[Rfam]
RNA sequence: CAUGUGGUGCCUGACUUCGGGUUGGGAGUGCGACGUGGCCUUAAACUUGAGGU
Numbered sequence: 001c002a003u004g005u006g007g008u009g010c011c012u013g014a015c016u017u018c019g020g021g022u023u024g025g026g027a028g029u030g031c032g033a034c035g036u037g038g039c040c041u042u043a044a045a046c047u048u049g050a051g052g053u
Stems, first nucleotide, its partner, number of pairs: 001037005007031002010026006

The family of this 53-nucleotide RNA from Shewanella colwelliana is "L31-Gammaproteobacteria ribosomal protein leader".
Pairs were carried over by alignment from the consensus structure, which is taken from published work.
The family is grouped with related families in Rfam's "Ribosomal Protein L31 Leader clan".
A reference for the family is Eckert and Weinberg (2020), "Discovery of 20 novel ribosomal leader candidates in bacteria and archaea", BMC Microbiol.
By type it is a cis-regulatory leader.